[Rfam]
Shown here is a 216-nucleotide RNA sequence from Pyrus ussuriensis x Pyrus communis, a member of the family "Early nodulin 40". Rfam 15.1 lists 341 matches to the family in 193 species.
RNA sequence: AUGGGGCUUAAAAGCAUUGGACAUGGAGUGAGGAUUUGCCUAAAACCUCCUCCAAAACUUGAACAGUUAGUCUGAGCUCAGUCAAUAGCUGCUGCUAACUACACCAAGUGCAAUUAUCAUACAUACUGAUCAUAUGAUCUGGAGGUAGCAGAGGUUUGGGCUCGUGCUUAGCGAACCGGCAAGUCACAAAUCGGCAACGGACUCAGUCAUGAGUCC
Numbered sequence: 001a002u003g004g005g006g007c008u009u010a011a012a013a014g015c016a017u018u019g020g021a022c023a024u025g026g027a028g029u030g031a032g033g034a035u036u037u038g039c040c041u042a043a044a045a046c047c048u049c050c051u052c053c054a055a056a057a058c059u060u061g062a063a064c065a066g067u068u069a070g071u072c073u074g075a076g077c078u079c080a081g082u083c084a085a086u087a088g089c090u091g092c093u094g095c096u097a098a099c100u101a102c103a104c105c106a107a108g109u110g111c112a113a114u115u116a117u118c119a120u121a122c123a124u125a126c127u128g129a130u131c132a133u134a135u136g137a138u139c140u141g142g143a144g145g146u147a148g149c150a151g152a153g154g155u156u157u158g159g160g161c162u163c164g165u166g167c168u169u170a171g172c173g174a175a176c177c178g179g180c181a182a183g184u185c186a187c188a189a190a191u192c193g194g195c196a197a198c199g200g201a202c203u204c205a206g207u208c209a210u211g212a213g214u215c216c
Base pairs, nucleotide, nucleotide: 025053026052027051066176067175068174070172071171085165086164200215201214202213203212204211

It is annotated as a non-coding RNA gene. The literature on the family includes a 2007 paper in Nucleic Acids Res by Gultyaev and Roussis, "Identification of conserved secondary structures and expansion segments in enod40 RNAs reveals new enod40 homologues in plants". Pairs were carried over by alignment from the consensus structure, which is taken from published work. Rfam links the family to the GO term nodulation.